The record is a 73-nucleotide RNA sequence from Metarhizium album, which matches "bZIP non canonical Hac1/Xbp1 intron" in Rfam. Rfam classes the family as a small RNA. bZIP intron RNA is a non-canonical intron that was first reported in HAC1 gene in yeast and XBP1 gene in Metazoa.

[Rfam]
RNA sequence: CACCUCUCCCGACCUGACACAACAUCCUGCUGAGAUGUUGUCGGACCUGCAGUGUCACAAGUCGGCGAAGGUG
Number, nucleotide and partner (000 for none) at each position: 001c073002a072003c071004c070005u069006c000007u000008c000009c065010c064011g063012a062013c061014c000015u000016g000017a000018c000019a000020c000021a039022a038023c037024a036025u035026c034027c000028u000029g000030c000031u000032g000033a000034g026035a025036u024037g023038u022039u021040g000041u000042c000043g000044g056045a055046c054047c000048u000049g000050c000051a000052g000053u000054g046055u045056c044057a000058c000059a000060a000061g013062u012063c011064g010065g009066c000067g000068a000069a005070g004071g003072u002073g001
Source information:
The source organism's lineage runs through Eukaryota, Dikarya, Ascomycota, Clavicipitaceae and Metarhizium album.